RNA: TPP riboswitch aptamer (THI element)
Organism: Pseudoduganella armeniaca
RNA sequence: CGCCCUCGCUAGGGGUCCUGGAACGCGUGUUCCGGGUGAGAGAUACCCUUCGUACCUGAUCUGGAUAAUGCCAGCGAAGGAAAGCGCAAAGUCGUGUUC
Numbered sequence: 001c002g003c004c005c006u007c008g009c010u011a012g013g014g015g016u017c018c019u020g021g022a023a024c025g026c027g028u029g030u031u032c033c034g035g036g037u038g039a040g041a042g043a044u045a046c047c048c049u050u051c052g053u054a055c056c057u058g059a060u061c062u063g064g065a066u067a068a069u070g071c072c073a074g075c076g077a078a079g080g081a082a083a084g085c086g087c088a089a090a091g092u093c094g095u096g097u098u099c
Stems, first nucleotide, its partner, number of pairs: 007086004011049004016043001017036007055080003061074004